A member of the RNA family "MAT2A 3'UTR stem loop A" from Larimichthys crocea, 68 nucleotides long. The family has 20 seed sequences and 595 matches in Rfam 15.1. The literature on the family includes a 2011 paper in Genome Res by Parker et al., "New families of human regulatory RNA structures identified by comparative analysis of vertebrate genomes". Rfam classes the family as a cis-regulatory element.
[Rfam]
RNA sequence: GCUUUUCCCCCCCAGGCUUGUUGGUGUAUACUACAGAGAAGCCAGCAAGGUUCCGGGGGGUGAAAUGC
Dot-bracket structure: ((.(...((((.(.((..((..(((((.....))......)))..))....)).).))))....).))